[Rfam]
Nucleotides: 131
Base pairs, nucleotide, nucleotide: 003057004056006054007053008052017041018040019039021035022034023033024032025031069124070123071122072121073120084110085109086108088106091103092102093101
Number, partner (000 for none) and nucleotide at each position: 001000u002000a003057g004056c005000a006054a007053g008052c009000c010000u011000c012000c013000u014000g015000c016000g017041u018040g019039c020000c021035g022034g023033g024032u025031c026000u027000g028000c029000g030000u031025g032024g033023c034022c035021c036000c037000g038000u039019g040018u041017g042000u043000u044000c045000c046000c047000g048000c049000a050000g051000c052008g053007c054006u055000g056004g057003c058000c059000a060000g061000a062000g063000c064000a065000g066000u067000g068000c069124u070123g071122a072121g073120g074000u075000g076000g077000u078000u079000u080000g081000a082000g083000g084110c085109c086108u087000c088106g089000g090000c091103c092102u093101g094000c095000u096000u097000c098000g099000u100000c101093c102092a103091g104000a105000g106088c107000a108086a109085g110084g111000u112000c113000a114000u115000g116000g117000a118000a119000g120073u121072u122071u123070c124069a125000g126000a127000c128000a129000a130000u131000u

The record is a 131-nucleotide sequence from Spermophilus dauricus, which matches "Small nucleolar RNA SNORA9" in Rfam. The base pairs follow the family's consensus structure, which was predicted with PFOLD. ACA9 is a member of the H/ACA class of snoRNA that guide the sites of modification of uridines to pseudouridines. Its family is annotated with RNA processing and nucleolus in the Gene Ontology. NCBI's taxonomy places the organism under Eukaryota, Euteleostomi, Sarcopterygii, Glires, Spermophilus.